[Rfam]
RNA sequence: AAAUCUCACUCAAUACAGCGGAUGGUUGAAAUGCCAUAUACGCCAAUGAAUACCGCAACAAUGGUGAUGGGGCAAAGUGUCCCCAUUCGUUGAGUGCGGAGCUUGCGCCGCUGUGUUGGGUUUAUCAUUGA
Numbered sequence: 001a002a003a004u005c006u007c008a009c010u011c012a013a014u015a016c017a018g019c020g021g022a023u024g025g026u027u028g029a030a031a032u033g034c035c036a037u038a039u040a041c042g043c044c045a046a047u048g049a050a051u052a053c054c055g056c057a058a059c060a061a062u063g064g065u066g067a068u069g070g071g072g073c074a075a076a077g078u079g080u081c082c083c084c085a086u087u088c089g090u091u092g093a094g095u096g097c098g099g100a101g102c103u104u105g106c107g108c109c110g111c112u113g114u115g116u117u118g119g120g121u122u123u124a125u126c127a128u129u130g131a
Base pairs, nucleotide, nucleotide: 009120010119011118012117013116015114016113017112018111019110020109022037023036024035025034026033041107042106043105045103053099054098055097056096057095061090062089063088066087067086068085069084070083071082
This 131-nucleotide RNA belongs to the Rfam family "RAGATH-4 RNA".